Mammalian CPEB3 ribozyme: a 79-nucleotide RNA from Alligator sinensis.
Gene Ontology term of the family: RNA nuclease activity.
[Rfam]
RNA sequence: CACGCCCAGUGAUGGGCCACAGCAGAAGUGUUCACAUCACGACCCCUGUCAAAUUCCAAGAAAUCUGCUAAAUUCUGCU
Numbered sequence: 001c002a003c004g005c006c007c008a009g010u011g012a013u014g015g016g017c018c019a020c021a022g023c024a025g026a027a028g029u030g031u032u033c034a035c036a037u038c039a040c041g042a043c044c045c046c047u048g049u050c051a052a053a054u055u056c057c058a059a060g061a062a063a064u065c066u067g068c069u070a071a072a073u074u075c076u077g078c079u
Stems, first nucleotide, its partner, number of pairs: 014045003018041001021079007028040003050067002053064003
Rfam's curators write: The mammalian CPEB3 ribozyme is a self cleaving RNA located in the second intron of the CPEB3 gene which belongs to a family of genes regulating messenger RNA polyadenylation. This ribozyme is highly conserved and found only in mammals. The CPEB3 ribozyme is structurally and biochemically related to the human hepatitis delta virus (HDV) ribozyme and the HDV ribozyme is proposed to have arisen from the human transcriptome. There is currently only one other known self cleaving ribozyme in mammals, the CoTC motif.